[Rfam]
This 200-nucleotide sequence from Eragrostis curvula belongs to the Rfam family "MIR1435 microRNA precursor family". A search with the family's covariance model found it, with a score of 94 bits. Gene Ontology terms of the family: miRNA-mediated post-transcriptional gene silencing and RISC complex.
RNA sequence: UAUGAUUGUCCUAAGUCAAACCAUCUUAAGUUUGACCAAGUUUAUUUAGAAUAAUAUCAACAUUUAUGACAUCAAAUAGGUAUAAGAUGAAAAUAUAUUUCAAGAUGAAUCUAAUGAUACUUGUACGGUACCAAAAAUGUUGAUACUUGUUCGUAUAAGCUUGGUCAAAGUUAGAAUGGUUUGACUUAGGACAAAGCUAA
Dot-bracket structure: .....((((.((((((((((((((......(((((...........(((((((.(((.(((((((.((...((..(((((((...................................)))))))..))...)).))))))).)))..))))).)).........)))))......)))))))))))))).))))......